[Rfam]
RNA sequence: GGCGUGGGUGAUGAAAACUUGACCUUAGGUGGGUAUUUGUUUGACCGUUUUGGUUCAAAUCGUGCCUACCAAUGCCAGGACUUGUCAUAGUUACUCUGACACGCU
Numbered sequence: 001g002g003c004g005u006g007g008g009u010g011a012u013g014a015a016a017a018c019u020u021g022a023c024c025u026u027a028g029g030u031g032g033g034u035a036u037u038u039g040u041u042u043g044a045c046c047g048u049u050u051u052g053g054u055u056c057a058a059a060u061c062g063u064g065c066c067u068a069c070c071a072a073u074g075c076c077a078g079g080a081c082u083u084g085u086c087a088u089a090g091u092u093a094c095u096c097u098g099a100c101a102c103g104c105u
Stems, first nucleotide, its partner, number of pairs: 001105006
RNA: Small nucleolar RNA SNORD46
Organism: Merluccius polli